[Rfam]
RNA sequence: GUGAGGUGAUGAUAAAACUCAUGAUCUAUCAAUUCACUAAUUAAUUAGUAGUGAUGUAUAUAGAAAUCCCAAUAGGUUUUGAUUGC
Numbered sequence: 001g002u003g004a005g006g007u008g009a010u011g012a013u014a015a016a017a018c019u020c021a022u023g024a025u026c027u028a029u030c031a032a033u034u035c036a037c038u039a040a041u042u043a044a045u046u047a048g049u050a051g052u053g054a055u056g057u058a059u060a061u062a063g064a065a066a067u068c069c070c071a072a073u074a075g076g077u078u079u080u081g082a083u084u085g086c
Base pairs, nucleotide, nucleotide: 001086002085003084004083
A member of the RNA family "Small nucleolar RNA snoR14" from Vanilla planifolia, 86 nucleotides long. It is annotated as a C/D-box small nucleolar RNA. Taxonomically the source falls in Vanilla (Eukaryota, Magnoliopsida, Mesangiospermae, Vanilloideae). The family is grouped with related families in Rfam's "SNORD110 clan".